[Rfam]
Shown here is an 86-nucleotide sequence from Ideonella sp. MAG2, a member of the family "SAH (S-adenosyl-L-homocysteine) riboswitch aptamer".

RNA sequence: GCUUCCAAGGAGCGUUGCAGCAGUGAGCCCCUCACUGUCAGGCUUGGGCCAUCCGGUAAAGCGGACGAUAACCACGCUCACCCCCA
Numbered sequence: 001g002c003u004u005c006c007a008a009g010g011a012g013c014g015u016u017g018c019a020g021c022a023g024u025g026a027g028c029c030c031c032u033c034a035c036u037g038u039c040a041g042g043c044u045u046g047g048g049c050c051a052u053c054c055g056g057u058a059a060a061g062c063g064g065a066c067g068a069u070a071a072c073c074a075c076g077c078u079c080a081c082c083c084c085c086a
Stems, first nucleotide, its partner, number of pairs: 004048005021037006
The literature on the family includes a 2008 paper in Mol Cell by Wang et al., "Riboswitches that sense S-adenosylhomocysteine and activate genes involved in coenzyme recycling".
Rfam links the family to the GO terms regulation of gene expression and S-adenosylhomocysteine metabolic process.